[Rfam]
RNA sequence: CGAGUUGGCCAGACAGUUGCUGCGUUCGCAAGAACGGGGAGGAAAGUCCGGGCUUCAAAGAGCAGGGUACCAGGUAACGCCUGGGCGGUGUAAACCGACGACAAGUGCAGCAGAGAGAAGACCGCCAACUUCGGUUGGUAAGGGUGAAAGGGUGCGGUAAGAGCGCACCGGACCACUGGUAACAGUUGGUUGCAAGGUAAACUCUACCCGAAGCAAGACCAAAUAGGGUCCCGUAUGGCGCUGCUCGCGUUGGGACCGGGUAGGUCGCUUGAGCCUGUGAGCGAUUGCAGGCCUAGAUGAAUAACUGUCCACGACAGGACCCGGCUUAUCGGCCAACUCAACCU
Dot-bracket structure: .(((((((((((((((((.((.(((((....))))).))....[[[.[[[[[((((...[[[[.((((((((((.....)))))(((((....)))).)((...((((.............((((((((....))))))..)).......((((((.......))))))(((((((((....))).))))).)...))..)))))))))))))...((((......((((((....(((((.]]]]))))))))))).....))))......((((((((....))))))))..........)))))))..........]]]]]]]].).))))))))).....

Bacterial RNase P class A: a 344-nucleotide RNA sequence from Shewanella intestini. From the family's description: Ribonuclease P (RNase P) is a ubiquitous endoribonuclease, found in archaea, bacteria and eukarya as well as chloroplasts and mitochondria. Its family is annotated with tRNA processing, dimeric ribonuclease P complex and ribonuclease P activity in the Gene Ontology. It is annotated as a ribozyme. It scores 338 bits against the family's covariance model. The base pairs follow the family's consensus structure, which is taken from published work.